[Rfam]
RNA: Mammalian CPEB3 ribozyme
Organism: Alligator sinensis
Nucleotides: 080
Stems, first nucleotide, its partner, number of pairs: 016048001018047004024080007031043001033041001052069006
Number, partner (000 for none) and nucleotide at each position: 001000a002000g003000a004000g005000g006000u007000c008000a009000c010000c011000a012000g013000c014000u015000u016048g017000a018047g019046g020045c021044c022000g023000c024080a025079g026078c027077a028076g029075a030074a031043g032000c033041g034000c035000u036000u037000a038000u039000a040000g041033c042000c043031u044021g045020g046019c047018c048016c049000u050000g051000u052069c053068a054067c055066a056065u057064u058000c059000c060000a061000a062000c063000a064057a065056a066055u067054g068053u069052g070000u071000a072000a073000a074030u075029u076028c077027u078026g079025c080024u